[Rfam]
RNA sequence: CGCUUCCUUCGAUCUGACACAACAUUCUGCCGCGAUGUUGUGUGACCUGCAGUGUCAAUCGAAGGAACAG
Numbered sequence: 001c002g003c004u005u006c007c008u009u010c011g012a013u014c015u016g017a018c019a020c021a022a023c024a025u026u027c028u029g030c031c032g033c034g035a036u037g038u039u040g041u042g043u044g045a046c047c048u049g050c051a052g053u054g055u056c057a058a059u060c061g062a063a064g065g066a067a068c069a070g
Stems, first nucleotide, its partner, number of pairs: 001070001004067004009062005021039006044056003
RNA: bZIP non canonical Hac1/Xbp1 intron
Organism: Monilinia fructigena